[Rfam]
RNA: mir-2024 microRNA precursor family
Organism: Nematostella vectensis
RNA sequence: UGCUUCAAAAUAUCGGUGUUGGGUAAAAGGUCACAUUUUACACAGUACCGAUAUUGUGAAGCA
Numbered sequence: 001u002g003c004u005u006c007a008a009a010a011u012a013u014c015g016g017u018g019u020u021g022g023g024u025a026a027a028a029g030g031u032c033a034c035a036u037u038u039u040a041c042a043c044a045g046u047a048c049c050g051a052u053a054u055u056g057u058g059a060a061g062c063a
Stems, first nucleotide, its partner, number of pairs: 001063007009055008020044002023041006029034001